The family of this 70-nucleotide RNA sequence from Flavobacterium sp. ALD4 is "DUF805 RNA". The family is grouped with related families in Rfam's "DUF805 clan". Lineage of the source: Bacteria > Bacteroidota > Flavobacteriia > Flavobacteriales > Flavobacterium. The family's consensus secondary structure is taken from published work. Rfam classes the family as a cis-regulatory element.

RNA sequence: AAAAGGUGGAGUCCAGAACCCACUUAAAAAAACGGGGCGUAUUCCGAAAAGCCAUACAUGUAGGACUAAA
Numbered sequence: 001a002a003a004a005g006g007u008g009g010a011g012u013c014c015a016g017a018a019c020c021c022a023c024u025u026a027a028a029a030a031a032a033c034g035g036g037g038c039g040u041a042u043u044c045c046g047a048a049a050a051g052c053c054a055u056a057c058a059u060g061u062a063g064g065a066c067u068a069a070a
Stems, first nucleotide, its partner, number of pairs: 006023004036053003043064002